Shown here is a 45-nucleotide sequence from Arminella tumorigenes, a member of the family "ctRNA". The match comes from Rfam's covariance-model search (59 bits). The base pairs follow the family's consensus structure, which is taken from published work. Rfam's curators write: This family represents a group of ctRNAs (or counter-transcribed RNAs) from p42d and related plasmids. ctRNAs are small, highly structured, antisense sequences which are involved in negative regulation. It is annotated as an antisense RNA. The literature on the family includes a 2004 paper in Mol Microbiol by Venkova-Canova et al., "Two discrete elements are required for the replication of a repABC plasmid: an antisense RNA and a stem-loop structure".
RNA sequence: AGGGGCUUCCACGACGGCAACGUUUUGGGGGCCUUUUUCUUUUCC
Dot-bracket structure: ..((((((((..((((....))))..))))))))...........